RNA sequence: UAAGAAGACCGGGCAGUCGCCGGUGCGUUCGCGUGCGGGAGGAAAGUCCGGACACCGCAGGGCAGGACGGUCGGUAACGCCGACGUGCAGUGAUGCAGGGAAAGUGCCGCAGAAAACAGACCGCCAGUCUGAAAAGACAGGUAAGGGUGAAACGGUGGUGUAAGAGACCACCGCUCUGCCGGGUGACCGGCGGAGGCACGGUAAACCCCGUCCGGUGCAAGGUUAAAUAGGUGAGCAUUUUAGGGCUGCCCGCCCGAGCUCACGGGUAAACCGCUUGAGCCUGAGAGCAAUCUCCGGUCUAGAUUAAUGACUGCCUCAGCCCCUUAAGAAGGGCUCAGACAGGAUCCGGCUUAUAGGUCUUCUUAUUUU
Dot-bracket structure: ((((((((((((((((((.((.(((((....))))).))....[[[.[[[[[((((...[[[[.((((((((((.....))))).((((....)))).((...(((((............(((((.((((....)))).)))..)).......((((((.......))))))((((.(((((....))))).))).)..)))..)))))))))))))...((((......((((((......((((.]]]]))))..)))))).....))))......(((.((((....)))).)))..........))))))).............................]]]]]]]].).))))))))))....
Numbered sequence: 001u002a003a004g005a006a007g008a009c010c011g012g013g014c015a016g017u018c019g020c021c022g023g024u025g026c027g028u029u030c031g032c033g034u035g036c037g038g039g040a041g042g043a044a045a046g047u048c049c050g051g052a053c054a055c056c057g058c059a060g061g062g063c064a065g066g067a068c069g070g071u072c073g074g075u076a077a078c079g080c081c082g083a084c085g086u087g088c089a090g091u092g093a094u095g096c097a098g099g100g101a102a103a104g105u106g107c108c109g110c111a112g113a114a115a116a117c118a119g120a121c122c123g124c125c126a127g128u129c130u131g132a133a134a135a136g137a138c139a140g141g142u143a144a145g146g147g148u149g150a151a152a153c154g155g156u157g158g159u160g161u162a163a164g165a166g167a168c169c170a171c172c173g174c175u176c177u178g179c180c181g182g183g184u185g186a187c188c189g190g191c192g193g194a195g196g197c198a199c200g201g202u203a204a205a206c207c208c209c210g211u212c213c214g215g216u217g218c219a220a221g222g223u224u225a226a227a228u229a230g231g232u233g234a235g236c237a238u239u240u241u242a243g244g245g246c247u248g249c250c251c252g253c254c255c256g257a258g259c260u261c262a263c264g265g266g267u268a269a270a271c272c273g274c275u276u277g278a279g280c281c282u283g284a285g286a287g288c289a290a291u292c293u294c295c296g297g298u299c300u301a302g303a304u305u306a307a308u309g310a311c312u313g314c315c316u317c318a319g320c321c322c323c324u325u326a327a328g329a330a331g332g333g334c335u336c337a338g339a340c341a342g343g344a345u346c347c348g349g350c351u352u353a354u355a356g357g358u359c360u361u362c363u364u365a366u367u368u369u
Stems, first nucleotide, its partner, number of pairs: 001365010011354001012315007020039002023036005044352003048349005053217004060251004065213005070084005086097004099208002104206002106202003121146002123142003127138004154172006173197001174195003178191005221272004231263006243255004279298003283294004
The family of this 369-nucleotide sequence from Geovibrio thiophilus is "Bacterial RNase P class A". By type it is a ribozyme. NCBI's taxonomy places the organism under Bacteria, Deferribacteres, Deferribacterales, Geovibrionaceae, Geovibrio.